[Rfam]
RNA sequence: AAGACCGUCUACAUAUGUUAGAUACGUAGACGGCUUAAAAAGCCGUCUACGUAUCUAACAUAUGUAGACGGUUUC
Numbered sequence: 001a002a003g004a005c006c007g008u009c010u011a012c013a014u015a016u017g018u019u020a021g022a023u024a025c026g027u028a029g030a031c032g033g034c035u036u037a038a039a040a041a042g043c044c045g046u047c048u049a050c051g052u053a054u055c056u057a058a059c060a061u062a063u064g065u066a067g068a069c070g071g072u073u074u075c
Stems, first nucleotide, its partner, number of pairs: 005071005012064015028048005